[Rfam]
RNA: MIR2619 microRNA precursor family
Organism: Medicago truncatula
RNA sequence: AAACCGUCCCCUAAGUUUUGCAAUUGUAGCAGUUUUGGCCCCCCAAUGUCAAUUUUUGGUAAAAUAAAUAAAAAAAAAAACACGUGGUACCUCACUUAGGGUGCCUUAGGGUGCCACGUCAACGUAGAGCGAGUCAAAAUUGGUUUUGCGGGCCAAAACUGCCACAAAUGCAAAACUUAUGGGACUGUUU
Numbered sequence: 001a002a003a004c005c006g007u008c009c010c011c012u013a014a015g016u017u018u019u020g021c022a023a024u025u026g027u028a029g030c031a032g033u034u035u036u037g038g039c040c041c042c043c044c045a046a047u048g049u050c051a052a053u054u055u056u057u058g059g060u061a062a063a064a065u066a067a068a069u070a071a072a073a074a075a076a077a078a079a080a081c082a083c084g085u086g087g088u089a090c091c092u093c094a095c096u097u098a099g100g101g102u103g104c105c106u107u108a109g110g111g112u113g114c115c116a117c118g119u120c121a122a123c124g125u126a127g128a129g130c131g132a133g134u135c136a137a138a139a140u141u142g143g144u145u146u147u148g149c150g151g152g153c154c155a156a157a158a159c160u161g162c163c164a165c166a167a168a169u170g171c172a173a174a175a176c177u178u179a180u181g182g183g184a185c186u187g188u189u190u
Stems, first nucleotide, its partner, number of pairs: 001190002004187001006185003012179011024167004029162013044148003082119002085116007